This 123-nucleotide RNA from Jaculus jaculus belongs to the Rfam family "Small nucleolar RNA SNORA33". Rfam classes the family as an H/ACA-box small nucleolar RNA. It scores 94 bits against the family's covariance model. Rfam's curators write: ACA33 is a member of the H/ACA class of snoRNA that guide the sites of modification of uridines to pseudouridines.
RNA sequence: GAGGCAGAGUCUGCUUAUCUGAAAGUGUUUCUACAGAAAUGUAGAGAACUGGCAAUAGUGAUGCCAUGUUACGAGCCUUAAGGACGACUGAGGCCGUUAAAGUCCCUGGAAAUGGCUACAAUA
Numbered sequence: 001g002a003g004g005c006a007g008a009g010u011c012u013g014c015u016u017a018u019c020u021g022a023a024a025g026u027g028u029u030u031c032u033a034c035a036g037a038a039a040u041g042u043a044g045a046g047a048a049c050u051g052g053c054a055a056u057a058g059u060g061a062u063g064c065c066a067u068g069u070u071a072c073g074a075g076c077c078u079u080a081a082g083g084a085c086g087a088c089u090g091a092g093g094c095c096g097u098u099a100a101a102g103u104c105c106c107u108g109g110a111a112a113u114g115g116c117u118a119c120a121a122u123a
Stems, first nucleotide, its partner, number of pairs: 001049001010037004063116004075103002078100004083095001085093001